RNA sequence: GGAAUAUAAGAAUCCGUUUCUUAACUUUUAACUAAAAAAAGUUAAGAACGACUCUUAAAUAAUAGACUUAAGAACCGGUUAUUAGCUAUUUUAGUUAAAAGUUAAGAGAAAAUUUCUUAUAUUCC
Numbered sequence: 001g002g003a004a005u006a007u008a009a010g011a012a013u014c015c016g017u018u019u020c021u022u023a024a025c026u027u028u029u030a031a032c033u034a035a036a037a038a039a040a041g042u043u044a045a046g047a048a049c050g051a052c053u054c055u056u057a058a059a060u061a062a063u064a065g066a067c068u069u070a071a072g073a074a075c076c077g078g079u080u081a082u083u084a085g086c087u088a089u090u091u092u093a094g095u096u097a098a099a100a101g102u103u104a105a106g107a108g109a110a111a112a113u114u115u116c117u118u119a120u121a122u123u124c125c
Stems, first nucleotide, its partner, number of pairs: 001125012017109021039087001042084001044082001046080002
RNA: MIR9563 microRNA precursor family